Manganese Mn2+ riboswitch aptamer (yybP-ykoY): a 187-nucleotide RNA sequence from Herbaspirillum sp. SJZ107. Taxonomically the source falls in Herbaspirillum (Bacteria, Pseudomonadati, Pseudomonadota, Oxalobacteraceae).
RNA sequence: CGCAAUCCCACAGGGGAGUAGCCUGCUUUUCGCCCAGCUUUAUCGGCGGCGGAAAGUUCCCGUAUCAACACACUCGGCGCCACAGUGCCGUGGUACGGGCAGCCGUCUCGGUUGGCAAGACCUUGGGUAUGCCGGUGCGCUCUGUCCGGGCCGCGCUGGCGUACCUCCGUUCCUGCCCGGCCCGAGA
Dot-bracket structure: .........................(((((((((.............)))))))))..(((((((((.......(((((......))))))))))))))......((..............................................................................))